[Rfam]
RNA: mir-548 microRNA precursor family
RNA sequence: UAUUAGGUUGGUGCAAAUGUAAUUGUGGAUUUUGUCAUUGAAAAUAAUGGCAAAACCUGCCAUUACAUUUGCACCAACCUAAUA
Numbered sequence: 001u002a003u004u005a006g007g008u009u010g011g012u013g014c015a016a017a018u019g020u021a022a023u024u025g026u027g028g029a030u031u032u033u034g035u036c037a038u039u040g041a042a043a044a045u046a047a048u049g050g051c052a053a054a055a056c057c058u059g060c061c062a063u064u065a066c067a068u069u070u071g072c073a074c075c076a077a078c079c080u081a082a083u084a
Base pairs, nucleotide, nucleotide: 001084002083003082004081005080006079007078008077009076010075011074012073013072014071015070016069017068018067019066020065021064022063023062025060026059027058028057030055031054032053033052034051035050036049037048038047039046040045